[Rfam]
RNA sequence: ACAAUCUCGGACGAUGAUUCUGGGGGAUACGCGUAGUGACCAUUCAAGCUGAUUGUGACACUACGUAGGGUAGGUAUCAGUAAAUCCUUUUACUGAUAGACGGGAUACUAUUGCUGUAAAAACAGCAUGUUAAUGGGAAACCCAACA
Numbered sequence: 001a002c003a004a005u006c007u008c009g010g011a012c013g014a015u016g017a018u019u020c021u022g023g024g025g026g027a028u029a030c031g032c033g034u035a036g037u038g039a040c041c042a043u044u045c046a047a048g049c050u051g052a053u054u055g056u057g058a059c060a061c062u063a064c065g066u067a068g069g070g071u072a073g074g075u076a077u078c079a080g081u082a083a084a085u086c087c088u089u090u091u092a093c094u095g096a097u098a099g100a101c102g103g104g105a106u107a108c109u110a111u112u113g114c115u116g117u118a119a120a121a122a123c124a125g126c127a128u129g130u131u132a133a134u135g136g137g138a139a140a141c142c143c144a145a146c147a
Stems, first nucleotide, its partner, number of pairs: 006024006031066008041055002075098010112127006